[Rfam]
RNA sequence: AAGACUAUACUUUGAGGGAUUAUUUCAGAUAAACUUCUAGAGUUUCUCUGAACUGUAGAGCACCAAAAACCAUGAAAAGAGGGUGUAGCAUUCUCUCCUGAGUGUGAGGCCGGCUGUUGGUGCUACCUCACUGCAACUGCCAUAUCCACUAAUGAUCAUUAUUCUCUUACUCUGGGAGAGUAAGAGAGAGAGGACGCACUCUGAGUGGU
Numbered sequence: 001a002a003g004a005c006u007a008u009a010c011u012u013u014g015a016g017g018g019a020u021u022a023u024u025u026c027a028g029a030u031a032a033a034c035u036u037c038u039a040g041a042g043u044u045u046c047u048c049u050g051a052a053c054u055g056u057a058g059a060g061c062a063c064c065a066a067a068a069a070c071c072a073u074g075a076a077a078a079g080a081g082g083g084u085g086u087a088g089c090a091u092u093c094u095c096u097c098c099u100g101a102g103u104g105u106g107a108g109g110c111c112g113g114c115u116g117u118u119g120g121u122g123c124u125a126c127c128u129c130a131c132u133g134c135a136a137c138u139g140c141c142a143u144a145u146c147c148a149c150u151a152a153u154g155a156u157c158a159u160u161a162u163u164c165u166c167u168u169a170c171u172c173u174g175g176g177a178g179a180g181u182a183a184g185a186g187a188g189a190g191a192g193g194a195c196g197c198a199c200u201c202u203g204a205g206u207g208g209u
Base pairs, nucleotide, nucleotide: 002038003037004036006033008031009030010028011027016026017025018024044059045058048055069209070208071207072206073205088197089196091194092193093192094191095190096189097188099186102159103158104157112147113146115144118142119141120140121139122137124135126133162183163182164180165179166178167177168176170174
About this RNA
This 209-nucleotide sequence from Cebus imitator belongs to the Rfam family "Small nucleolar RNA U3". Small nucleolar RNAs (snoRNAs) are involved in the processing and modification of rRNA in the nucleolus. Gene Ontology terms of the family: RNA processing and nucleolus. Rfam 15.1 lists 19,072 matches to the family in 1,215 species. The organism belongs to Cebus, within Eukaryota.